Record summary
The family of this 183-nucleotide sequence from Lactococcus lactis is "Lysine riboswitch aptamer". It is one of the family's seed sequences. About the family: Riboswitches are metabolite binding domains within certain messenger RNAs that serve as precision sensors for their corresponding targets. Allosteric rearrangement of mRNA structure is mediated by ligand binding, and this results in modulation of gene expression. This family includes riboswitches that sense lysine in a number of genes involved in lysine metabolism, including lysC. Rfam links the family to the GO term lysine biosynthetic process.
RNA sequence: CACAUCGAUAGAGGUCGCAACUGAUAUGAAUCUACGCCGAGUUGGAGCACAACAAAGACGCGUAUUUAGAGGAGGAGAGGUUGCCGAAAGAAUUUUGUUGCUCAGCAAGGUUCUUGGGCUAGUGAGAAAAACUCACUAGACUGUCGCAAAUGGUUAAUAACCAUGCGGAGGGCUAUUCGUUCA
Numbered sequence: 001c002a003c004a005u006c007g008a009u010a011g012a013g014g015u016c017g018c019a020a021c022u023g024a025u026a027u028g029a030a031u032c033u034a035c036g037c038c039g040a041g042u043u044g045g046a047g048c049a050c051a052a053c054a055a056a057g058a059c060g061c062g063u064a065u066u067u068a069g070a071g072g073a074g075g076a077g078a079g080g081u082u083g084c085c086g087a088a089a090g091a092a093u094u095u096u097g098u099u100g101c102u103c104a105g106c107a108a109g110g111u112u113c114u115u116g117g118g119c120u121a122g123u124g125a126g127a128a129a130a131a132c133u134c135a136c137u138a139g140a141c142u143g144u145c146g147c148a149a150a151u152g153g154u155u156a157a158u159a160a161c162c163a164u165g166c167g168g169a170g171g172g173c174u175a176u177u178c179g180u181u182c183a
Base pairs, nucleotide, nucleotide: 007177008176009175010174011173017084018083019082020081021080022079025076037069039067040066041065042064088115089114090113091112092111093110094109095108096107097106098105099104116142117141119139120138121137122136123135124134125133126132144168145167146166147165148164